U4 spliceosomal RNA: a 141-nucleotide RNA from Trichobilharzia regenti. Rfam links the family to the GO terms U4 snRNP and spliceosomal tri-snRNP complex assembly. NCBI's taxonomy places the organism under Eukaryota, Metazoa, Bilateria, Trematoda, Trichobilharzia. The family's consensus secondary structure is taken from published work. The family has 177 seed sequences and 32,178 matches in Rfam 15.1. It scores 92 bits against the family's covariance model.
RNA sequence: GGCUUUACGCAGUGGCGGUACCGUAGCCAAUGAAGUUUUAUCUGAGGCGCGGUUAUUACUAGUUGAAACCUACUCCCAGUACCUCGCACUGAUGGCGUGAAAUAUUGUCGUCAGAUGCAAUUUUUCCAGGCUGUCAAAGGC
Numbered sequence: 001g002g003c004u005u006u007a008c009g010c011a012g013u014g015g016c017g018g019u020a021c022c023g024u025a026g027c028c029a030a031u032g033a034a035g036u037u038u039u040a041u042c043u044g045a046g047g048c049g050c051g052g053u054u055a056u057u058a059c060u061a062g063u064u065g066a067a068a069c070c071u072a073c074u075c076c077c078a079g080u081a082c083c084u085c086g087c088a089c090u091g092a093u094g095g096c097g098u099g100a101a102a103u104a105u106u107g108u109c110g111u112c113a114g115a116u117g118c119a120a121u122u123u124u125u126c127c128a129g130g131c132u133g134u135c136a137a138a139g140g141c
Stems, first nucleotide, its partner, number of pairs: 020053005026048003034043002086118003089114009